[Rfam]
RNA sequence: GGAAGCUGGUUUCAGAUGGUGGCUUAGAGUGUUUCUGUCAGUGAUCUAGCACCAUUUGAAAUCAGUGUUCU
Numbered sequence: 001g002g003a004a005g006c007u008g009g010u011u012u013c014a015g016a017u018g019g020u021g022g023c024u025u026a027g028a029g030u031g032u033u034u035c036u037g038u039c040a041g042u043g044a045u046c047u048a049g050c051a052c053c054a055u056u057u058g059a060a061a062u063c064a065g066u067g068u069u070c071u
Stems, first nucleotide, its partner, number of pairs: 001071004005066010016055006025048004

Shown here is a 71-nucleotide RNA sequence from Bagarius yarrelli, a member of the family "mir-29 microRNA precursor family". Rfam 15.1 lists 3,328 matches to the family in 787 species. Rfam describes the family as follows. This family represents the microRNA (miRNA) precursors mir-29. For this family Rfam cites "microRNAs: tiny regulators with great potential" (Ambros, Cell, 2001). The base pairs follow the family's consensus structure, which was predicted with PFOLD.